[Rfam]
RNA sequence: AUGCCUUAAACUUAUGAAUAAGGAAAAUAAUGAUUUGGGGGUGAUGCCAGGAUCCUCACUGCUAAUGUGAGAUGAAUUUUUGAGCUGGUAAAGGUCGCCCCUAAGGUGACCAGCCAACUUUGUGGGAUGCCUGGGAGCUACGAUCUGCCCA
Numbered sequence: 001a002u003g004c005c006u007u008a009a010a011c012u013u014a015u016g017a018a019u020a021a022g023g024a025a026a027a028u029a030a031u032g033a034u035u036u037g038g039g040g041g042u043g044a045u046g047c048c049a050g051g052a053u054c055c056u057c058a059c060u061g062c063u064a065a066u067g068u069g070a071g072a073u074g075a076a077u078u079u080u081u082g083a084g085c086u087g088g089u090a091a092a093g094g095u096c097g098c099c100c101c102u103a104a105g106g107u108g109a110c111c112a113g114c115c116a117a118c119u120u121u122g123u124g125g126g127a128u129g130c131c132u133g134g135g136a137g138c139u140a141c142g143a144u145c146u147g148c149c150c151a
Stems, first nucleotide, its partner, number of pairs: 004023005032054005038048002055071005087149003092146006101135002104132005110126002113123002
Record summary
Shown here is a 151-nucleotide RNA from Galemys pyrenaicus, a member of the family "U12 minor spliceosomal RNA". The pairing is the family consensus, mapped onto this sequence. NCBI's taxonomy places the organism under Eukaryota, Opisthokonta, Euteleostomi, Mammalia, Galemys. The family is grouped with related families in Rfam's "U2 clan".